Shown here is a 76-nucleotide RNA from Pengzhenrongella frigida, a member of the family "c-di-GMP-I riboswitch aptamer". Clan: c-di-GMP_I riboswitch clan. A search with the family's covariance model found it, with a score of 57 bits. Its family is annotated with cyclic-di-GMP binding in the Gene Ontology. Taxonomically the source falls in Pengzhenrongella (Bacteria, Bacillati, Actinomycetota, Micrococcales). From the family's description: GEMM was predicted in a large-scale screen for bacterial structured RNA regulatory elements.
RNA sequence: CAGCGAGAAGUGCAAACCCGCCGCGAGGCGGGGACGCAAAGCCACGGGACCCACCAGGGCCAGCCGGGCUGCCGAA
Numbered sequence: 001c002a003g004c005g006a007g008a009a010g011u012g013c014a015a016a017c018c019c020g021c022c023g024c025g026a027g028g029c030g031g032g033g034a035c036g037c038a039a040a041g042c043c044a045c046g047g048g049a050c051c052c053a054c055c056a057g058g059g060c061c062a063g064c065c066g067g068g069c070u071g072c073c074g075a076a
Base pairs, nucleotide, nucleotide: 012037013036017032018031019030020029021028022027040070041069042068043067045066046065047064048061050059051058052057
Dot-bracket structure: ...........((...((((((....))))))...))..((((.((((.(((....))).)..)))))))......